The family of this 82-nucleotide sequence from Pigmentiphaga litoralis is "SucA RNA motif". The family's consensus secondary structure is taken from published work. Gene Ontology term of the family: regulation of translation.
[Rfam]
RNA sequence: UCGCUAUCCGCUGAACGGCAAAGCCGUGUCGCGGAAGGUACGUCCUGCAUCGAACGGGUGAAACACCCGGCAAGGUGAAGCG
Numbered sequence: 001u002c003g004c005u006a007u008c009c010g011c012u013g014a015a016c017g018g019c020a021a022a023g024c025c026g027u028g029u030c031g032c033g034g035a036a037g038g039u040a041c042g043u044c045c046u047g048c049a050u051c052g053a054a055c056g057g058g059u060g061a062a063a064c065a066c067c068c069g070g071c072a073a074g075g076u077g078a079a080g081c082g
Base pairs, nucleotide, nucleotide: 002082003081004080007035008034009033010032011031016026017025018024019023037045038044048077049076050075051074055069056068057067058066059065060064